RNA sequence: AGAGCAUGCCUUUCAGGCAUCCUCUCCCAAACUUUUCAGCCCGGCCGGAAACGGUCGGGCAUUUUUUUUGAGUCAA
Dot-bracket structure: .......((((...))))....................((((((((......))))))))................